The family of this 46-nucleotide RNA from Chelonoidis abingdonii is "Histone 3' UTR stem-loop".

RNA sequence: CCAAAGGCUCUUUUCAGAGCCACCCACAAAAUCAAGAAAUAGCUGU
Number, nucleotide and partner (000 for none) at each position: 001c000002c000003a000004a000005a000006g021007g020008c019009u018010c017011u016012u000013u000014u000015c000016a011017g010018a009019g008020c007021c006022a000023c000024c000025c000026a000027c000028a000029a000030a000031a000032u000033c000034a000035a000036g000037a000038a000039a000040u000041a000042g000043c000044u000045g000046u000
The organism belongs to Chelonoidis nigra species complex, within Eukaryota.
Rfam classes the family as a cis-regulatory element.
It scores 46 bits against the family's covariance model.
The family's consensus secondary structure is taken from published work.